Rfam assigns this 47-nucleotide RNA sequence from Orthohepacivirus hominis to the family "Hepatitis C virus stem-loop I". The literature on the family includes a 2016 paper in Mol Cell by Pirakitikulr et al., "The Coding Region of the HCV Genome Contains a Network of Regulatory RNA Structures". It is annotated as a cis-regulatory element. The family's consensus secondary structure was predicted with RNAfold.
[Rfam]
RNA sequence: CAAUAGGGUAGCAGGGGCUCUCAGGAAACUUGGGAUCCCUCCUCUAC
Numbered sequence: 001c002a003a004u005a006g007g008g009u010a011g012c013a014g015g016g017g018c019u020c021u022c023a024g025g026a027a028a029c030u031u032g033g034g035a036u037c038c039c040u041c042c043u044c045u046a047c
Stems, first nucleotide, its partner, number of pairs: 006042003011038001019035007